[Rfam]
RNA sequence: AAUAAACGCAGCCGCGGGUUUCAGUGUCCAACUUUAACCAUUCAUCUUAUUUAAAAUAAUUUUAUGAUUAUUAUUUUUGUGUUUUAUUGGAUGAUAAAAUAUGAAUAGUACUUUAUAAGUGACUUAACUUUUAAAAUUUUUUAAAUAAGACGACGGUCAAACGUUGAGCAUGAAAACUUAUAGGUGCACUUAAU
Number, nucleotide and partner (000 for none) at each position: 001a000002a000003u000004a000005a000006a000007c000008g000009c000010a000011g000012c000013c000014g000015c000016g000017g000018g000019u000020u000021u000022c000023a000024g000025u000026g000027u168028c000029c166030a165031a164032c163033u161034u160035u159036a000037a157038c156039c155040a000041u153042u000043c152044a000045u150046c149047u148048u147049a146050u145051u000052u000053a000054a000055a000056a000057u000058a000059a000060u000061u000062u000063u000064a000065u000066g000067a000068u000069u000070a000071u000072u000073a000074u000075u000076u000077u000078u000079g000080u000081g000082u000083u000084u000085u000086a000087u000088u000089g000090g000091a000092u000093g000094a000095u000096a000097a000098a000099a000100u000101a000102u000103g000104a000105a000106u000107a000108g000109u000110a000111c000112u000113u000114u000115a000116u000117a000118a000119g000120u000121g000122a000123c000124u000125u000126a000127a000128c000129u000130u000131u000132u000133a000134a000135a000136a000137u000138u000139u000140u000141u000142u000143a000144a000145a050146u049147a048148a047149g046150a045151c000152g043153a041154c000155g039156g038157u037158c000159a035160a034161a033162c000163g032164u031165u030166g029167a000168g027169c000170a000171u000172g000173a000174a000175a000176a000177c000178u000179u000180a000181u000182a000183g000184g000185u000186g000187c000188a000189c000190u000191u000192a000193a000194u000

The family of this 194-nucleotide sequence from Oryza glumipatula is "MIR812 microRNA precursor family". It scores 132 bits against the family's covariance model. The base pairs follow the family's consensus structure, which was predicted with RNAalifold. Gene Ontology terms of the family: RISC complex and miRNA-mediated post-transcriptional gene silencing.